[Rfam]
Rfam assigns this 150-nucleotide RNA sequence from Vagococcus zengguangii to the family "glmS glucosamine-6-phosphate activated ribozyme aptamer". The base pairs follow the family's consensus structure, which is taken from published work. Taxonomically the source falls in Vagococcus (Bacteria, Bacillati, Bacillota, Lactobacillales). About the family: This entry contains a glucosamine-6-phosphate activated ribozyme that is found in the mRNA for GlmS. GlmS is an enzyme that uses fructose-6-phosphate and glutamine to generate glucosamine-6-phosphate. The ribozyme catalyses self cleavage of the glmS mRNA that is thought to regulate GlmS activity. The match comes from Rfam's covariance-model search (80 bits).

RNA sequence: ACCAAUUGGAUAGCGCCAGCUCUGUUUUGAAAAGACAGAGGACGAGGAGGAACUUAUCGAAAAUUCGGCGGGUAGUUCUCGGGGAGUGGACUCCUAAGAUUUCUAACAAAACUUACUGAAAGUAACCACAAAAAGAAAUCACCCACUAGA
Numbered sequence: 001a002c003c004a005a006u007u008g009g010a011u012a013g014c015g016c017c018a019g020c021u022c023u024g025u026u027u028u029g030a031a032a033a034g035a036c037a038g039a040g041g042a043c044g045a046g047g048a049g050g051a052a053c054u055u056a057u058c059g060a061a062a063a064u065u066c067g068g069c070g071g072g073u074a075g076u077u078c079u080c081g082g083g084g085a086g087u088g089g090a091c092u093c094c095u096a097a098g099a100u101u102u103c104u105a106a107c108a109a110a111a112c113u114u115a116c117u118g119a120a121a122g123u124a125a126c127c128a129c130a131a132a133a134a135g136a137a138a139u140c141a142c143c144c145a146c147u148a149g150a
Base pairs, nucleotide, nucleotide: 020040021039022038023037024036025035026034027033049079050078051077052076053075057068058067059066060065081093082092083091098140099139100138101137102136103135104134113125114124115123116122